[Rfam]
The record is a 77-nucleotide sequence from Alligator mississippiensis, which matches "Mammalian CPEB3 ribozyme" in Rfam.
RNA sequence: AGACCACAAAUUUGAAGCCAUAGCAGAAGCGCUCACAGCGUGGCCUGUCAGAAUCCAACAAAUCUGCAAAUUCUGCU
Numbered sequence: 001a002g003a004c005c006a007c008a009a010a011u012u013u014g015a016a017g018c019c020a021u022a023g024c025a026g027a028a029g030c031g032c033u034c035a036c037a038g039c040g041u042g043g044c045c046u047g048u049c050a051g052a053a054u055c056c057a058a059c060a061a062a063u064c065u066g067c068a069a070a071u072u073c074u075g076c077u
Stems, first nucleotide, its partner, number of pairs: 014045001017044003022077007029041003049066004054061001

Rfam's curators write: The mammalian CPEB3 ribozyme is a self cleaving RNA located in the second intron of the CPEB3 gene which belongs to a family of genes regulating messenger RNA polyadenylation.